[Rfam]
RNA: RtT RNA
RNA sequence: UGUUGAUCGAGCACGGCCAGGGUUCGAACCUGCAAGGUUCGACGCGCGAGGCGCAGCCGAGCCGAACAGCGCCGCUUGCGGCGCUGGCCCGAAGGGCGAGGCCGCAGGCCGAGUAAUCCUGGUCCCCCAGCCA
Numbered sequence: 001u002g003u004u005g006a007u008c009g010a011g012c013a014c015g016g017c018c019a020g021g022g023u024u025c026g027a028a029c030c031u032g033c034a035a036g037g038u039u040c041g042a043c044g045c046g047c048g049a050g051g052c053g054c055a056g057c058c059g060a061g062c063c064g065a066a067c068a069g070c071g072c073c074g075c076u077u078g079c080g081g082c083g084c085u086g087g088c089c090c091g092a093a094g095g096g097c098g099a100g101g102c103c104g105c106a107g108g109c110c111g112a113g114u115a116a117u118c119c120u121g122g123u124c125c126c127c128c129a130g131c132c133a
Stems, first nucleotide, its partner, number of pairs: 015124007023116001033095001038093004045059002067086008